[Rfam]
Nucleotides: 439
Base pairs, nucleotide, nucleotide: 004017005016006015007014008013024231025230028228030226039222040221043220046217050212051211052210059207060206061205065202067200069198070197072196073195074194076165078163080161081160082159089153090152092150095147098114099113100112131140132139133138167182168181169180235327236326237325239323247255248254258316260314261313262312263311266309268307269305270304274297275296276295280293333348334347335346337345338344351371352370353367354366355365356364377405378404388402389401390400391399411436414433415432416431417430418429420427421426
Number, partner (000 for none) and nucleotide at each position: 001000a002000a003000c004017c005016c006015g007014u008013u009000g010000u011000g012000c013008a014007g015006u016005g017004g018000u019000u020000g021000g022000u023000a024231c025230g026000a027000g028228u029000c030226c031000u032000c033000c034000a035000c036000u037000u038000c039222a040221g041000u042000a043220g044000u045000a046217c047000u048000c049000a050212u051211c052210u053000c054000c055000a056000g057000a058000c059207g060206u061205u062000a063000u064000c065202c066000u067200u068000c069198g070197a071000u072196a073195u074194c075000u076165c077000u078163u079000c080161u081160u082159u083000u084000g085000a086000g087000u088000u089153c090152c091000c092150u093000c094000u095147u096000a097000a098114g099113c100112a101000c102000u103000g104000a105000a106000u107000a108000u109000u110000u111000c112100u113099g114098u115000c116000a117000u118000u119000c120000a121000a122000a123000c124000c125000a126000u127000u128000u129000u130000c131140g132139c133138c134000g135000c136000a137000a138133g139132g140131c141000u142000c143000a144000a145000g146000u147095a148000u149000a150092a151000a152090g153089g154000u155000a156000u157000u158000a159082a160081a161080a162000u163078a164000u165076g166000g167182c168181u169180a170000a171000c172000a173000g174000a175000a176000u177000g178000a179000a180169u181168g182167g183000u184000u185000c186000a187000g188000u189000g190000a191000a192000a193000u194074g195073g196072u197070u198069u199000a200067a201000c202065g203000c204000g205061g206060a207059u208000a209000a210052a211051g212050g213000c214000u215000u216000u217046g218000g219000u220043u221040u222039u223000a224000u225000c226030g227000c228028a229000c230025c231024g232000g233000c234000a235327g236326a237325c238000g239323g240000c241000a242000g243000c244000a245000a246000a247255g248254a249000c250000g251000u252000g253000u254248u255247c256000g257000u258316c259000c260314a261313u262312u263311u264000c265000u266309c267000c268307g269305c270304u271000a272000u273000c274297c275296a276295g277000a278000g279000c280293g281000a282000u283000a284000a285000u286000u287000u288000u289000c290000g291000c292000a293280c294000a295276c296275u297274g298000a299000c300000c301000g302000a303000a304270g305269g306000u307268c308000a309266g310000c311263a312262g313261g314260u315000u316258g317000a318000a319000u320000u321000c322000u323239c324000g325237g326236u327235u328000g329000a330000a331000a332000a333348c334347g335346g336000c337345g338344c339000g340000a341000a342000a343000g344338g345337c346335c347334c348333g349000u350000c351371a352370g353367c354366c355365g356364u357000g358000a359000a360000u361000g362000u363000g364356g365355u366354g367353g368000c369000g370352c371351u372000c373000u374000a375000a376000a377405g378404a379000c380000a381000a382000c383000a384000u385000g386000a387000u388402u389401g390400c391399a392000g393000c394000a395000g396000g397000u398000u399391u400390g401389c402388a403000u404378u405377u406000c407000a408000g409000a410000u411436g412000c413000c414433c415432u416431g417430c418429g419000u420427g421426u422000c423000a424000u425000g426421g427420c428000u429418c430417g431416c432415a433414g434000u435000a436411u437000c438000g439000u

The record is a 439-nucleotide RNA sequence from Cronobacter sakazakii, which matches "cspA thermoregulator" in Rfam. The family has 15 seed sequences and 2,094 matches in Rfam 15.1. Rfam classes the family as an RNA thermoregulator. The source organism's lineage runs through Bacteria, Gammaproteobacteria, Enterobacterales, Enterobacteriaceae and Cronobacter sakazakii. A reference for the family is Giuliodori et al. (2010), "The cspA mRNA is a thermosensor that modulates translation of the cold-shock protein CspA", Mol Cell.